[Rfam]
RNA: Acido-Lenti-1 RNA
Organism: Planctomycetaceae bacterium SCGC AG-212-F19
RNA sequence: CCCAGCGAUAAAUCGCUGGGCUAUUUUCGGUUGCCCCUCCGGGGCA
Numbered sequence: 001c002c003c004a005g006c007g008a009u010a011a012a013u014c015g016c017u018g019g020g021c022u023a024u025u026u027u028c029g030g031u032u033g034c035c036c037c038u039c040c041g042g043g044g045c046a
Stems, first nucleotide, its partner, number of pairs: 001020008033045005
Dot-bracket structure: ((((((((....))))))))............(((((...))))).